[Rfam]
RNA sequence: GUGGUAGGAAGUUCACUGUAGAGGUUACAAACUGAGUGUUCAUCACUAUUCAUUCACCUCGGGGAAGGUCUGAGACGUGAGCCAAUCGCUGCUCUAGCAGGGCAUCAUCUGAAUGAUGAGCGAGUGCACAGACACGUGGGUCACUCUGUGGUGUUUCGCACGAGACGUUGAUUUGCAAAAUAGCUAAUCAAUCGAUGCGAUCCCAGUUGACUUGGAAACACUCGCGGCUGGCGGAUUGAGUUUGAUGUGUGAACCAGCGCUACGGGCUGGAACCCAAUUCAGACUACUCUCCUACCAC
Numbered sequence: 001g002u003g004g005u006a007g008g009a010a011g012u013u014c015a016c017u018g019u020a021g022a023g024g025u026u027a028c029a030a031a032c033u034g035a036g037u038g039u040u041c042a043u044c045a046c047u048a049u050u051c052a053u054u055c056a057c058c059u060c061g062g063g064g065a066a067g068g069u070c071u072g073a074g075a076c077g078u079g080a081g082c083c084a085a086u087c088g089c090u091g092c093u094c095u096a097g098c099a100g101g102g103c104a105u106c107a108u109c110u111g112a113a114u115g116a117u118g119a120g121c122g123a124g125u126g127c128a129c130a131g132a133c134a135c136g137u138g139g140g141u142c143a144c145u146c147u148g149u150g151g152u153g154u155u156u157c158g159c160a161c162g163a164g165a166c167g168u169u170g171a172u173u174u175g176c177a178a179a180a181u182a183g184c185u186a187a188u189c190a191a192u193c194g195a196u197g198c199g200a201u202c203c204c205a206g207u208u209g210a211c212u213u214g215g216a217a218a219c220a221c222u223c224g225c226g227g228c229u230g231g232c233g234g235a236u237u238g239a240g241u242u243u244g245a246u247g248u249g250u251g252a253a254c255c256a257g258c259g260c261u262a263c264g265g266g267c268u269g270g271a272a273c274c275c276a277a278u279u280c281a282g283a284c285u286a287c288u289c290u291c292c293u294a295c296c297a298c
Stems, first nucleotide, its partner, number of pairs: 001298004007292003012253005021060004035047004070282005080229004090104005105119005120225007140211003254270005260264001
RNA: Nuclear RNase P